[Rfam]
RNA sequence: CCUAGAUACACGCCGUGGGUGGAGGCGGGGGACCCAACGUACGUGACCGCUUCGGUGGUCUUGGGGUGAAGCCAGCGCGACUGGCCGGGUACUCACGAACCCGAACCCGACAGCUCACCUCGAAGGCGCUCACCGUGAGAGGUC
Numbered sequence: 001c002c003u004a005g006a007u008a009c010a011c012g013c014c015g016u017g018g019g020u021g022g023a024g025g026c027g028g029g030g031g032a033c034c035c036a037a038c039g040u041a042c043g044u045g046a047c048c049g050c051u052u053c054g055g056u057g058g059u060c061u062u063g064g065g066g067u068g069a070a071g072c073c074a075g076c077g078c079g080a081c082u083g084g085c086c087g088g089g090u091a092c093u094c095a096c097g098a099a100c101c102c103g104a105a106c107c108c109g110a111c112a113g114c115u116c117a118c119c120u121c122g123a124a125g126g127c128g129c130u131c132a133c134c135g136u137g138a139g140a141g142g143u144c
Base pairs, nucleotide, nucleotide: 001126002125007023026122027121028120029119030118035063036062064108065107066106072084073083074082075081087102088101089100090099
Rfam assigns this 144-nucleotide RNA from Angustibacter sp. Root456 to the family "c-di-AMP riboswitch aptamer (ydaO/yuaA leader)". The base pairs follow the family's consensus structure. Lineage of the source: Bacteria > Bacillati > Actinomycetota > Actinomycetes > Angustibacter.